Description:
Shown here is a 77-nucleotide RNA sequence from Dyella sp. AD56, a member of the family "Xanthomonas sRNA sX9". By type it is a small RNA. For this family Rfam cites "Genome-wide transcriptome analysis of the plant pathogen Xanthomonas identifies sRNAs with putative virulence functions" (Schmidtke et al., Nucleic Acids Res, 2011). Rfam 15.1 lists 309 matches to the family in 52 species. A search with the family's covariance model found it, with a score of 70 bits.
RNA sequence: AUGUACGCGCAAGUACCCUCCGGUUCCUGCGCGCCGCCCGCACCCGCCUGACGGCCGCUCGCUACGUUUUGUUGGCG
Dot-bracket structure: ..((((......))))....((((.(....).))))...........(((((((..............)))))))..